[Rfam]
This 99-nucleotide RNA sequence from Phtheirospermum japonicum belongs to the Rfam family "mir-172 microRNA precursor family". Gene Ontology terms of the family: miRNA-mediated post-transcriptional gene silencing and RISC complex.

RNA sequence: UUCUUUGCAAAUGCAGCGUCAUCAAGAUUCACAUUCAACAAGCUAUAUAUCCCCGGCUCACAUAGAUGAGAAUCUUGAUGAUGCUGCAUUGGUAAACAC
Numbered sequence: 001u002u003c004u005u006u007g008c009a010a011a012u013g014c015a016g017c018g019u020c021a022u023c024a025a026g027a028u029u030c031a032c033a034u035u036c037a038a039c040a041a042g043c044u045a046u047a048u049a050u051c052c053c054c055g056g057c058u059c060a061c062a063u064a065g066a067u068g069a070g071a072a073u074c075u076u077g078a079u080g081a082u083g084c085u086g087c088a089u090u091g092g093u094a095a096a097c098a099c
Base pairs, nucleotide, nucleotide: 010090011089012088013087014086015085016084017083018082019081020080021079022078023077024076025075026074027073028072029071030070032068033067034066035065